[Rfam]
Nucleotides: 090
Base pairs, nucleotide, nucleotide: 002089003088004087005086007084008083009082
Number, partner (000 for none) and nucleotide at each position: 001000a002089a003088u004087g005086g006000c007084g008083u009082a010000a011000a012000g013000g014000a015000u016000g017000a018000c019000u020000g021000a022000a023000c024000u025000u026000u027000u028000u029000u030000c031000c032000c033000c034000a035000g036000c037000a038000g039000a040000u041000c042000g043000a044000c045000a046000c047000u048000g049000u050000u051000g052000a053000c054000u055000u056000c057000u058000c059000u060000a061000u062000a063000a064000u065000u066000a067000a068000g069000c070000c071000a072000a073000a074000a075000u076000a077000u078000c079000u080000g081000a082009u083008g084007c085000a086005c087004c088003a089002u090000g
A member of the RNA family "Small nucleolar SNORD12/SNORD106" from Silurus meridionalis, 90 nucleotides long.
A reference for the family is Huttenhofer et al. (2001), "RNomics: an experimental approach that identifies 201 candidates for novel, small, non-messenger RNAs in mouse", EMBO J.
Clan: SNORD12 clan.
It scores 67 bits against the family's covariance model.
The family's consensus secondary structure was predicted with RNAalifold.